[Rfam]
RNA sequence: GACGGGCCUCCUCGCAUAGCGGCAAGGUUAACCUGGUCAGGUCGGGAACGAAGCAGCCACAGCUUUUCCCGCUAGUGCCGAGGGUUGGGCUCGUCAUC
Numbered sequence: 001g002a003c004g005g006g007c008c009u010c011c012u013c014g015c016a017u018a019g020c021g022g023c024a025a026g027g028u029u030a031a032c033c034u035g036g037u038c039a040g041g042u043c044g045g046g047a048a049c050g051a052a053g054c055a056g057c058c059a060c061a062g063c064u065u066u067u068c069c070c071g072c073u074a075g076u077g078c079c080g081a082g083g084g085u086u087g088g089g090c091u092c093g094u095c096a097u098c
Stems, first nucleotide, its partner, number of pairs: 004092005009084006015075001017074006024066006034059004042051003
RNA: Bacterial small signal recognition particle RNA